[Rfam]
RNA sequence: AGUUGUCCCAAUGAUCCAGUGGGAAGGUAUGUAAGUUUUCUUUGAAGUGACACAGGUUCGAUUCCGCGUCCUUGAGUUUCUGAGAUAAAAAGUUGCAGGCCAAGAUACUGAAGAUUCGUUCGGAAUGGGCAACACCAUUUUUUUUAUUUUUUCAAUAU
Dot-bracket structure: .(((((((..((((..((((.....(((.(((((..(((.(((..((.(...((((..((....))....))))...).))..)).).))).))))).))).....)))).....))))(....).))))))).........................
About this RNA: Plasmodium RNA of unknown function RUF6-5: a 158-nucleotide RNA sequence from Plasmodium falciparum. It is one of the family's seed sequences. The family's consensus secondary structure was predicted with WAR. The family's RNA type in Rfam is small RNA. The literature on the family includes a 2007 paper in RNA by Chakrabarti et al., "Structural RNAs of known and unknown function identified in malaria parasites by comparative genomics and RNA analysis". The source organism's lineage runs through Eukaryota, Sar, Haemosporida, Laverania and Plasmodium falciparum.